[Rfam]
Annotation:
A member of the RNA family "Vertebrate telomerase RNA" from Cyclopterus lumpus, 348 nucleotides long. Clan: Telomerase clan. NCBI's taxonomy places the organism under Eukaryota, Eumetazoa, Neopterygii, Cottioidei, Cyclopterus. About the family: Telomerase is a ribonucleoprotein reverse transcriptase that synthesises telomeric DNA. Telomerase RNAs differ greatly in sequence and structure between vertebrates, ciliates and yeasts, but they share a 5' pseudoknot structure close to the template sequence. For this family Rfam cites "Comparative functional study of the viral telomerase RNA based on natural mutations" (Fragnet et al., J Biol Chem, 2005). It is annotated as a non-coding RNA gene.
RNA sequence: CCGCCUACGGAGUGUCUCAUCUAACCCUAAAUCCGGUCGACCUCCUGUACUUAACGUUUGCUGUUUUUUUUCUGUUUCUGGCUUUUCAGUGAACUACAGGAGGGGUUUGGAGUGAAGCGAGGAACCACAACAAAAAAAAGCCAAGAUAUUCACUCUGUCGUGUUCAGUGUCCCUUCAGAAACACUGCGAAUUUCCUGCCGUGGUCAGCUCGGCUGCCGCGAAGAGUUCGUCUCUGCUGCUCCGGUGUUUUCAUGUCGGGACUCGGUAACUUGAGCAGAGUAAAACUGAGCAGGGCGACUCUAACGGAUCUGAUAGUGGUCCGGCUAGGAAGCCCGAGCUCAAACACGC
Numbered sequence: 001c002c003g004c005c006u007a008c009g010g011a012g013u014g015u016c017u018c019a020u021c022u023a024a025c026c027c028u029a030a031a032u033c034c035g036g037u038c039g040a041c042c043u044c045c046u047g048u049a050c051u052u053a054a055c056g057u058u059u060g061c062u063g064u065u066u067u068u069u070u071u072c073u074g075u076u077u078c079u080g081g082c083u084u085u086u087c088a089g090u091g092a093a094c095u096a097c098a099g100g101a102g103g104g105g106u107u108u109g110g111a112g113u114g115a116a117g118c119g120a121g122g123a124a125c126c127a128c129a130a131c132a133a134a135a136a137a138a139a140g141c142c143a144a145g146a147u148a149u150u151c152a153c154u155c156u157g158u159c160g161u162g163u164u165c166a167g168u169g170u171c172c173c174u175u176c177a178g179a180a181a182c183a184c185u186g187c188g189a190a191u192u193u194c195c196u197g198c199c200g201u202g203g204u205c206a207g208c209u210c211g212g213c214u215g216c217c218g219c220g221a222a223g224a225g226u227u228c229g230u231c232u233c234u235g236c237u238g239c240u241c242c243g244g245u246g247u248u249u250u251c252a253u254g255u256c257g258g259g260a261c262u263c264g265g266u267a268a269c270u271u272g273a274g275c276a277g278a279g280u281a282a283a284a285c286u287g288a289g290c291a292g293g294g295c296g297a298c299u300c301u302a303a304c305g306g307a308u309c310u311g312a313u314a315g316u317g318g319u320c321c322g323g324c325u326a327g328g329a330a331g332c333c334c335g336a337g338c339u340c341a342a343a344c345a346c347g348c
Stems, first nucleotide, its partner, number of pairs: 002160002007158008041103005056094008077146003080142003083138003163274004169261005176254002180248007199220005205215004222234004287340004292334004298328001307325001309323002